The family of this 67-nucleotide sequence from Burkholderia sp. WAC0059 is "Betaproteobacteria toxic small RNA". The family has 51 seed sequences and 951 matches in Rfam 15.1. Overexpression in amino aid rich medium attenuates growth, suggesting role in repressing amino acid intake and metabolism. For this family Rfam cites "A vast collection of microbial genes that are toxic to bacteria" (Kimelman et al., Genome Res, 2012). A search with the family's covariance model found it, with a score of 66 bits.
RNA sequence: UGUCUCCUCCACCCUCCUCCAAAGGUGGAUUAAGCCCGAGCAGGCAAGCCCGCUCGGGCUUUUUUUC
Numbered sequence: 001u002g003u004c005u006c007c008u009c010c011a012c013c014c015u016c017c018u019c020c021a022a023a024g025g026u027g028g029a030u031u032a033a034g035c036c037c038g039a040g041c042a043g044g045c046a047a048g049c050c051c052g053c054u055c056g057g058g059c060u061u062u063u064u065u066u067c
Stems, first nucleotide, its partner, number of pairs: 008029006033060008